[Rfam]
RNA: SAM riboswitch aptamer (S box leader)
RNA sequence: UUCUUAUCAAGAGAAGCUGAGGGGAAGGCCCUAUGACGCUUCAGCAACCUCUGUGUAUGCAGAAAGGUGCUACAUCCUGCAAGAUUAAAUCUUGGAAGAUAAGAG
Numbered sequence: 001u002u003c004u005u006a007u008c009a010a011g012a013g014a015a016g017c018u019g020a021g022g023g024g025a026a027g028g029c030c031c032u033a034u035g036a037c038g039c040u041u042c043a044g045c046a047a048c049c050u051c052u053g054u055g056u057a058u059g060c061a062g063a064a065a066g067g068u069g070c071u072a073c074a075u076c077c078u079g080c081a082a083g084a085u086u087a088a089a090u091c092u093u094g095g096a097a098g099a100u101a102a103g104a105g
Base pairs, nucleotide, nucleotide: 001105002104003103004102005101006100007099008098013042014041015040016039017038021031022030023029026078027077028076043071044070045069046068048067049066050063051062052061053060075097080094081093082092083091084090085089